[Rfam]
RNA sequence: AAUCAUACAGAAGGAGUUCUCUCGUCAGCAUCGGUGGGUUUCCGGACUGCGUUCUGCCACGGCAACUUUUGGUGGGGUCGUGUUUGCGAAGGUAUUGGAUCAUUGUAGAAUUGUCAGCUCACGAAACAGUCUCCACCUUUGCAAUGGCCGUUGUUGCAGGAGGAUACUUGCGGUUGGCGUUGGAAGCAUAACCGGGACCCAUCUCGAGUUGGAGUCAAAGUUUCGUGCUUGUCUGGUGUUGUGAAAGACCCUUCUAUUGAGUUGAAUCUCACGACUUUGUGCUGCACUGUUGAGGCUGGGUUGCAUUCUUGGAUCUAGGACAGACCUUGUUGGGUGAGGUAGUCCUGGCUGUCCUCUCGCCUGAAAAUGGUGUGGAGGACAGCCCCCC
Dot-bracket structure: ...................................................................................................................................................................................................((((((........))).))).((((.....))))..............................................................................................................................................................
Rfam assigns this 388-nucleotide part of an RNA from Fusarium redolens to the family "Ascomycota telomerase RNA".
The family is grouped with related families in Rfam's "Telomerase clan".
The family's RNA type in Rfam is non-coding RNA gene.
A reference for the family is Qi et al. (2013), "The common ancestral core of vertebrate and fungal telomerase RNAs", Nucleic Acids Res.
The match comes from Rfam's covariance-model search (349 bits).